[Rfam]
RNA sequence: CAGGGUGUAGCUCAGUCAGUAGAGUGCCGCACUUGGAAUGCGGAGGCCGCUGGGGCGGAACCAGCCACCCUGA
Numbered sequence: 001c002a003g004g005g006u007g008u009a010g011c012u013c014a015g016u017c018a019g020u021a022g023a024g025u026g027c028c029g030c031a032c033u034u035g036g037a038a039u040g041c042g043g044a045g046g047c048c049g050c051u052g053g054g055g056c057g058g059a060a061c062c063a064g065c066c067a068c069c070c071u072g073a
Base pairs, nucleotide, nucleotide: 001072002071003070004069005068006067007066010025011024012023013022027043028042029041030040031039049065050064051063052062053061
About this RNA: Rfam assigns this 73-nucleotide sequence from Aquisphaera giovannonii to the family "tRNA". The organism belongs to Aquisphaera, within Bacteria. Its family is annotated with triplet codon-amino acid adaptor activity in the Gene Ontology. By type it is a transfer RNA.